[Rfam]
The record is a 130-nucleotide sequence from Camellia sinensis, which matches "Small nucleolar RNA snoR111" in Rfam. A reference for the family is Marker et al. (2002), "Experimental RNomics: identification of 140 candidates for small non-messenger RNAs in the plant Arabidopsis thaliana", Curr Biol.

RNA sequence: CAAAUCUUUUUAGUCGCCAAAUCUCAAUCAACGGCGACUAAAAUAUUUGUCGCUAAAUGUAUUAAUUUGGCGACUAAUUUUUUUGGUCGCUAAAAUAAGUUUUUGGCGACCAAAUUUUUGGUCGCCAAAG
Number, nucleotide and partner (000 for none) at each position: 001c000002a000003a000004a000005u000006c000007u045008u000009u043010u042011u041012a000013g038014u037015c036016g035017c034018c033019a000020a000021a000022u000023c000024u000025c000026a000027a000028u000029c000030a000031a000032c000033g018034g017035c016036g015037a014038c013039u000040a000041a011042a010043a009044u000045a007046u000047u000048u000049g000050u000051c000052g000053c000054u000055a000056a000057a000058u000059g000060u000061a000062u000063u000064a000065a000066u000067u000068u000069g126070g125071c124072g123073a122074c121075u000076a000077a115078u114079u113080u112081u000082u000083u000084u000085g000086g110087u109088c108089g107090c106091u105092a104093a000094a102095a101096u000097a000098a000099g000100u000101u095102u094103u000104u092105g091106g090107c089108g088109a087110c086111c000112a080113a079114a078115u077116u000117u000118u000119u000120g000121g074122u073123c072124g071125c070126c069127a000128a000129a000130g000
The base pairs follow the family's consensus structure, which was predicted with WAR.